RNA sequence: ACCUGCUUUGGGUAGGCAGUGUAGUUUUAGCUGGCUGCUUGCUAUUAACUCCAGCAGUCGCUAAUACUCUGCCACCGGCAGCAGGG
Numbered sequence: 001a002c003c004u005g006c007u008u009u010g011g012g013u014a015g016g017c018a019g020u021g022u023a024g025u026u027u028u029a030g031c032u033g034g035c036u037g038c039u040u041g042c043u044a045u046u047a048a049c050u051c052c053a054g055c056a057g058u059c060g061c062u063a064a065u066a067c068u069c070u071g072c073c074a075c076c077g078g079c080a081g082c083a084g085g086g
Stems, first nucleotide, its partner, number of pairs: 002085006009078001011076002015073005021067003026064002030061001032060004039054003
Shown here is an 86-nucleotide RNA from Xenopus tropicalis, a member of the family "mir-449 microRNA precursor family".
For this family Rfam cites "Small RNA expression and strain specificity in the rat" (Linsen et al., BMC Genomics, 2010).
Its family is annotated with miRNA-mediated post-transcriptional gene silencing and RISC complex in the Gene Ontology.
The family is grouped with related families in Rfam's "mir-34 clan".
The sequence is in the family's curated seed alignment.
The family's consensus secondary structure was predicted with RNAalifold.